[Rfam]
RNA: Clostridiales-1 RNA
Organism: Eubacterium sp. CAG:156
Nucleotides: 153
Stems, first nucleotide, its partner, number of pairs: 001153004010064004016057014030041004068113008078103004085096004116147007127137004
Number, partner (000 for none) and nucleotide at each position: 001153u002152a003151a004150c005000a006000c007000c008000a009000g010064a011063u012062u013061c014000a015000a016057a017056a018055a019054a020053a021052g022051a023050c024049u025048g026047c027046g028045u029044u030041c031040a032039u033038g034000c035000u036000u037000g038033c039032a040031u041030g042000a043000a044029a045028a046027c047026g048025c049024a050023g051022u052021c053020u054019u055018u056017u057016u058000u059000a060000u061013g062012a063011a064010u065000c066000g067000c068113c069112a070111a071110a072109a073108u074107a075106u076000g077000a078103g079102a080101a081100a082000a083000u084000a085096g086095c087094c088093c089000g090000a091000u092000a093088g094087g095086g096085u097000g098000g099000u100081u101080u102079u103078c104000g105000a106075a107074u108073a109072u110071u111070u112069u113068g114000u115000a116147g117146a118145a119144u120143u121142g122141c123000g124000a125000g126000a127137g128136u129135u130134c131000g132000a133000a134130g135129a136128a137127c138000g139000u140000a141122g142121c143120a144119a145118u146117u147116c148000g149000u150004g151003u152002u153001a